Background
Rfam assigns this 94-nucleotide sequence from Vibrio palustris to the family "t44 RNA". It scores 81 bits against the family's covariance model. The base pairs follow the family's consensus structure, which was predicted with LocARNA. Rfam classes the family as a small RNA.

RNA sequence: UAACUUACUUACAUAAAUCACACACAUUCCGUCACGUGUUCCGGGGUGCCCUACUUAGAUAGGGUCGGAGACAUGGGGGAUGUGGAGGCCUAAC
Numbered sequence: 001u002a003a004c005u006u007a008c009u010u011a012c013a014u015a016a017a018u019c020a021c022a023c024a025c026a027u028u029c030c031g032u033c034a035c036g037u038g039u040u041c042c043g044g045g046g047u048g049c050c051c052u053a054c055u056u057a058g059a060u061a062g063g064g065u066c067g068g069a070g071a072c073a074u075g076g077g078g079g080a081u082g083u084g085g086a087g088g089c090c091u092a093a094c
Base pairs, nucleotide, nucleotide: 023084024083025082026081027080028079029078030077035075036074037073038072039071040069041068042067043066048065049064050063051062052061